RNA sequence: AUCAUUAUAGGUGAUGGGGUUCCACCUUUAACCGCGCAAACAGCUGCUGAUGACUCCUACUUCAAC
Numbered sequence: 001a002u003c004a005u006u007a008u009a010g011g012u013g014a015u016g017g018g019g020u021u022c023c024a025c026c027u028u029u030a031a032c033c034g035c036g037c038a039a040a041c042a043g044c045u046g047c048u049g050a051u052g053a054c055u056c057c058u059a060c061u062u063c064a065a066c
Base pairs, nucleotide, nucleotide: 010026011025012024013023016057017056018055019054020053021052034047035046036044
Dot-bracket structure: .........[[[[..((((((.]]]].......(((.......).))....)))))).........
The record is a 66-nucleotide sequence from Anditalea andensis, which matches "Fluoride riboswitch aptamer (crcB RNA motif)" in Rfam. Pairs were carried over by alignment from the consensus structure, which is taken from published work.